[Rfam]
RNA sequence: UUCGCUUCUCAGUAUUUUAGCUAAGAUCAAGUGUAGUAUGUGUUCUUAUCAGUUUAAUAUCUGAUACCUACUCUAUAAGAGGACUCUAUAUUAAAAGGAGUUUUAGAGCUGGGAGACGGAAAAGAGCUUGCUCUGUCUGCUUCAUGCAGCGAUCUGGUACUGGAGUGUUUCCAGGCUUGGUGCACCAUUU
Dot-bracket structure: ......(((.(((......))).)))....................((((((........))))))..(.((((...)))).)............................((((.((((..((((....)))).))))))))..(((.((.(((((.............)))))..)).))).......
The record is a 190-nucleotide RNA sequence from Hemibagrus wyckioides, which matches "U2 spliceosomal RNA" in Rfam. The organism belongs to Hemibagrus, within Eukaryota. For this family Rfam cites "The uRNA database" (Zwieb, Nucleic Acids Res, 1997). Pairs were carried over by alignment from the consensus structure, which is taken from published work.